[Rfam]
RNA: R2 RNA element
RNA sequence: AAAUCUCUUGACAAGCUUUGUACAUUAGGGCCCUGAAUUAAUGUCCAAUAUAUCUGGCUCCAGGGCCCUAAUGAGAAGAGGGAGAGGUUGGGUUUUAGUGGGUCUGGAUGUCCCGGUAUCCGGACAUCAAUCCCACACUCCCCAUUACAAAGGUUUUUUUUGCAAUGGGCGUCUUUUGAAGAUUUCCCCCUCUC
Numbered sequence: 001a002a003a004u005c006u007c008u009u010g011a012c013a014a015g016c017u018u019u020g021u022a023c024a025u026u027a028g029g030g031c032c033c034u035g036a037a038u039u040a041a042u043g044u045c046c047a048a049u050a051u052a053u054c055u056g057g058c059u060c061c062a063g064g065g066c067c068c069u070a071a072u073g074a075g076a077a078g079a080g081g082g083a084g085a086g087g088u089u090g091g092g093u094u095u096u097a098g099u100g101g102g103u104c105u106g107g108a109u110g111u112c113c114c115g116g117u118a119u120c121c122g123g124a125c126a127u128c129a130a131u132c133c134c135a136c137a138c139u140c141c142c143c144a145u146u147a148c149a150a151a152g153g154u155u156u157u158u159u160u161u162g163c164a165a166u167g168g169g170c171g172u173c174u175u176u177u178g179a180a181g182a183u184u185u186c187c188c189c190c191u192c193u194c
Stems, first nucleotide, its partner, number of pairs: 029067006083193005090187002098136005107128006114122003138171001140169003